[Rfam]
RNA sequence: ACGGAGACAUGGCCUAAAGCCAGAGACAUGAACUCUUUAGGCUGUCACUUGAACUGAUUCACAUCUCAUUUU
Numbered sequence: 001a002c003g004g005a006g007a008c009a010u011g012g013c014c015u016a017a018a019g020c021c022a023g024a025g026a027c028a029u030g031a032a033c034u035c036u037u038u039a040g041g042c043u044g045u046c047a048c049u050u051g052a053a054c055u056g057a058u059u060c061a062c063a064u065c066u067c068a069u070u071u072u
Base pairs, nucleotide, nucleotide: 004067005066006065007064010022011021012020013019023062025060026059
RNA: ctgf/hcs24 CAESAR
Organism: Phocoena sinus